[Rfam]
RNA sequence: ACUUUCUGAACAGCCUGUGUAGGUACAGAGAAAUCAGCUUCCUUCAGAGAGC
Numbered sequence: 001a002c003u004u005u006c007u008g009a010a011c012a013g014c015c016u017g018u019g020u021a022g023g024u025a026c027a028g029a030g031a032a033a034u035c036a037g038c039u040u041c042c043u044u045c046a047g048a049g050a051g052c
Stems, first nucleotide, its partner, number of pairs: 002051008012039003017034002019026002
Dot-bracket structure: .((((((((..(((..((((....))......))..)))....)))))))).

This 52-nucleotide sequence from Castor canadensis belongs to the Rfam family "MAT2A 3'UTR stem loop C".
A search with the family's covariance model found it, with a score of 61 bits.
The source organism's lineage runs through Eukaryota, Metazoa, Euarchontoglires, Castoridae and Castor.